[Rfam]
RNA sequence: GUAAAAAUACGCAAAAUGGUAUACCUCGGUUAUUAAAAAAGUCUAAUCAACUUUCCGAGAUUACUUGAAUUUGAGCUUAGUCCAAGGAGAGCGGUCUUGGACGGAUACUUUGUCGAUAUUCGUGAGGGUAUUGACAGGAGAUAAGUGAGUAAGUGUAUCUUCUUAUCGCUAUAAAGAGCACCGAACUUGUCGCAGCAAUAAAUAGACGCUCCUUUUGAGGAGAAGAACCUGAAUGUCUUAUUAGGCGUGGUUGUUUAAAGAGAAACGCAGGAAUACCAAUAAUGCUGUUCGUGGUUGAUGUUUGGAAACAAACUAUAAGACGAGAAGCGGGUACAAGUAGCCUAUCCCGAGCUCUUUUUAACCAACGUAAAAUUGGGAAAAAUGAGGCAAUUCUGAAAGAUUGGUGAAAGUUGGAGGAAACUAAUCCUCCGUAAGGUCCGCCCCUGGCGGGGUUGGACAAGAAGCUAAGGGUCGCUCCCGAAAGCUCAGACUUGUCUGCUUACUGGCUGAAUAUUAUAGAAGAUUUGAAGGAGAAGACGAAGGUCUAUACCACUUUUAUUAUUUAA
Number, nucleotide and partner (000 for none) at each position: 001g000002u000003a000004a000005a000006a000007a563008u000009a000010c000011g559012c000013a557014a556015a555016a554017u000018g000019g551020u000021a000022u000023a000024c000025c059026u058027c057028g056029g055030u000031u000032a000033u000034u000035a000036a000037a000038a054039a053040a052041g051042u050043c000044u000045a000046a000047u000048c000049a000050a042051c041052u040053u039054u038055c029056c028057g027058a026059g025060a000061u152062u151063a150064c149065u148066u147067g000068a000069a000070u000071u000072u000073g110074a109075g108076c000077u105078u104079a000080g102081u101082c100083c099084a098085a097086g096087g095088a000089g000090a000091g000092c000093g000094g000095u087096c086097u085098u084099g083100g082101a081102c080103g000104g078105a077106u000107a000108c075109u074110u073111u136112g135113u134114c133115g132116a131117u130118a129119u128120u127121c126122g000123u000124g000125a000126g121127g120128g119129u118130a117131u116132u115133g114134a113135c112136a111137g000138g000139a000140g000141a000142u000143a000144a000145g000146u000147g066148a065149g064150u063151a062152a061153g000154u000155g000156u000157a000158u000159c000160u530161u529162c000163u527164u000165a525166u000167c000168g000169c000170u000171a000172u000173a000174a515175a000176g000177a514178g508179c000180a000181c330182c329183g328184a000185a000186c324187u323188u322189g321190u320191c319192g288193c287194a286195g285196c284197a283198a000199u000200a000201a000202a000203u000204a000205g000206a000207c000208g000209c222210u221211c220212c219213u000214u000215u000216u000217g000218a000219g212220g211221a210222g209223a000224a000225g000226a000227a000228c271229c270230u269231g268232a000233a000234u000235g000236u261237c260238u259239u258240a000241u000242u257243a256244g255245g000246c000247g000248u278249g277250g276251u275252u000253g000254u000255u244256u243257a242258a239259a238260g237261a236262g000263a000264a000265a000266c000267g000268c231269a230270g229271g228272a000273a000274u000275a251276c250277c249278a248279a000280u000281a000282a000283u197284g196285c195286u194287g193288u192289u000290c351291g000292u349293g348294g347295u000296u000297g000298a000299u000300g313301u312302u311303u310304g309305g000306a000307a000308a000309c304310a303311a302312a301313c300314u000315a000316u000317a000318a000319g191320a190321c189322g188323a187324g186325a000326a000327g000328c183329g182330g181331g000332u000333a000334c410335a000336a000337g000338u000339a000340g405341c404342c403343u000344a401345u400346c000347c294348c293349g292350a000351g290352c000353u000354c000355u000356u000357u000358u000359u000360a000361a000362c000363c000364a000365a000366c000367g000368u000369a000370a000371a000372a000373u000374u000375g000376g000377g000378a000379a000380a000381a000382a000383u000384g000385a000386g000387g000388c000389a000390a000391u000392u490393c489394u488395g487396a000397a000398a000399g000400a345401u344402u000403g342404g341405u340406g000407a000408a000409a000410g334411u000412u000413g000414g430415a000416g428417g427418a000419a000420a000421c000422u000423a000424a000425u000426c000427c417428u416429c000430c414431g000432u502433a501434a500435g453436g000437u000438c000439c000440g000441c451442c450443c449444c000445u000446g000447g000448c000449g443450g442451g441452g000453u435454u000455g000456g497457a000458c000459a000460a493461g492462a000463a000464g486465c000466u483467a000468a000469g479470g478471g477472u000473c000474g000475c000476u000477c471478c470479c469480g000481a000482a000483a466484g000485c000486u464487c395488a394489g393490a392491c000492u461493u460494g000495u000496c000497u456498g000499c000500u434501u433502a432503c000504u000505g000506g000507c000508u178509g000510a000511a000512u000513a000514u177515u174516a000517u000518a000519g000520a000521a000522g000523a000524u000525u165526u000527g163528a000529a161530g160531g000532a000533g000534a000535a546536g545537a544538c543539g000540a000541a000542g000543g538544u537545c536546u535547a000548u000549a000550c000551c019552a000553c000554u016555u015556u014557u013558a000559u011560u000561a000562u000563u007564u000565a000566a000
RNA: ROOL RNA